[Rfam]
RNA sequence: GAAGUUGGUUGGACAGUCGCCGCGGAAUUCGUUCCGGGGAGGAAAGUCCGGGCUCCACAGAGCAGGAUGCCGGCUAACGGCCGGAGGUCGCGAGGCCAUGGAAAGUGAUACAGAGACUUAAACCGCCCAAGCAUCCGGAAGGAUGACGGCAAGGGUGAAAAGGUGCGGUAAGAGCGCACCGCGGAGGCGGCAACGCUGACGGCAAGUUAAACCCCAUCCGGAGCAAGACCAAAUAGGGAAGCAUUGGCGUGGCUCGCGCCGCUUCCGGGUAGGUUGCUGGAGCCGUCAGGUAACUGGCGGCCUAGAGGAAUGACUGUCCUAGACAGAACCCGGCUUACAGAUCAACUUCCCCC
Numbered sequence: 001g002a003a004g005u006u007g008g009u010u011g012g013a014c015a016g017u018c019g020c021c022g023c024g025g026a027a028u029u030c031g032u033u034c035c036g037g038g039g040a041g042g043a044a045a046g047u048c049c050g051g052g053c054u055c056c057a058c059a060g061a062g063c064a065g066g067a068u069g070c071c072g073g074c075u076a077a078c079g080g081c082c083g084g085a086g087g088u089c090g091c092g093a094g095g096c097c098a099u100g101g102a103a104a105g106u107g108a109u110a111c112a113g114a115g116a117c118u119u120a121a122a123c124c125g126c127c128c129a130a131g132c133a134u135c136c137g138g139a140a141g142g143a144u145g146a147c148g149g150c151a152a153g154g155g156u157g158a159a160a161a162g163g164u165g166c167g168g169u170a171a172g173a174g175c176g177c178a179c180c181g182c183g184g185a186g187g188c189g190g191c192a193a194c195g196c197u198g199a200c201g202g203c204a205a206g207u208u209a210a211a212c213c214c215c216a217u218c219c220g221g222a223g224c225a226a227g228a229c230c231a232a233a234u235a236g237g238g239a240a241g242c243a244u245u246g247g248c249g250u251g252g253c254u255c256g257c258g259c260c261g262c263u264u265c266c267g268g269g270u271a272g273g274u275u276g277c278u279g280g281a282g283c284c285g286u287c288a289g290g291u292a293a294c295u296g297g298c299g300g301c302c303u304a305g306a307g308g309a310a311u312g313a314c315u316g317u318c319c320u321a322g323a324c325a326g327a328a329c330c331c332g333g334c335u336u337a338c339a340g341a342u343c344a345a346c347u348u349c350c351c352c353c
Stems, first nucleotide, its partner, number of pairs: 001349010011338001012318007020039002023036005044336003048333005053223004060255004065219005070084005085099001086097004100214002105212002107208003123154002125150003132145005162180006181203001182201002186197004227275004237266006246260005282301008
RNA: Bacterial RNase P class A